[Rfam]
RNA: Small nucleolar RNA Z118/Z121/Z120
Organism: Miscanthus lutarioriparius
RNA sequence: AAAUCGCUGUGAUGACUUACAAAGGACGGUAUCUGAGCGAGGCAACUAUUAUCCUCGCAUGAUUAUACCUGAUCUGAGACAAAUUGUCUGAGCAAGUA
Numbered sequence: 001a002a003a004u005c006g007c008u009g010u011g012a013u014g015a016c017u018u019a020c021a022a023a024g025g026a027c028g029g030u031a032u033c034u035g036a037g038c039g040a041g042g043c044a045a046c047u048a049u050u051a052u053c054c055u056c057g058c059a060u061g062a063u064u065a066u067a068c069c070u071g072a073u074c075u076g077a078g079a080c081a082a083a084u085u086g087u088c089u090g091a092g093c094a095a096g097u098a
Stems, first nucleotide, its partner, number of pairs: 002097001004095001006093002037058006